RNA sequence: CUCUUAUCAAGAGAGGCGGAGGGACUGGCCCGAUGAAGCCCGGCAACCUACCGUGAACCAGACGGUGUGGUGCCAAUUCCUGCAGAGUGCAAUCUCUGACAGAUGAGAG
Numbered sequence: 001c002u003c004u005u006a007u008c009a010a011g012a013g014a015g016g017c018g019g020a021g022g023g024a025c026u027g028g029c030c031c032g033a034u035g036a037a038g039c040c041c042g043g044c045a046a047c048c049u050a051c052c053g054u055g056a057a058c059c060a061g062a063c064g065g066u067g068u069g070g071u072g073c074c075a076a077u078u079c080c081u082g083c084a085g086a087g088u089g090c091a092a093u094c095u096c097u098g099a100c101a102g103a104u105g106a107g108a109g
Stems, first nucleotide, its partner, number of pairs: 001109008013041001015040003021031003025082001027080002042074004047070002050066004078101001083098005
Source information
The record is a 109-nucleotide RNA sequence from Melghirimyces profundicolus, which matches "SAM riboswitch aptamer (S box leader)" in Rfam. The family's consensus secondary structure is taken from published work. Lineage of the source: Bacteria > Bacillati > Bacilli > Caryophanales > Melghirimyces. Rfam describes the family as follows. The SAM riboswitch is found upstream of a number of genes which code for proteins involved in methionine or cysteine biosynthesis in Gram-positive bacteria.